[Rfam]
Background:
Rfam assigns this 87-nucleotide RNA to the family "Small nucleolar RNA R16". It is one of the family's seed sequences. A reference for the family is Galardi et al. (2002), "Purified box C/D snoRNPs are able to reproduce site-specific 2'-O-methylation of target RNA in vitro", Mol Cell Biol.

RNA sequence: AUUGGCAAAUGAAGAAUUGAUUAAUUUAUGCUUAACCACUGAUGAACAGUGUUGACAAAACAUCUCCGCUUAUUAUCUGAUGCCAUA
Numbered sequence: 001a002u003u004g005g006c007a008a009a010u011g012a013a014g015a016a017u018u019g020a021u022u023a024a025u026u027u028a029u030g031c032u033u034a035a036c037c038a039c040u041g042a043u044g045a046a047c048a049g050u051g052u053u054g055a056c057a058a059a060a061c062a063u064c065u066c067c068g069c070u071u072a073u074u075a076u077c078u079g080a081u082g083c084c085a086u087a
Stems, first nucleotide, its partner, number of pairs: 003085005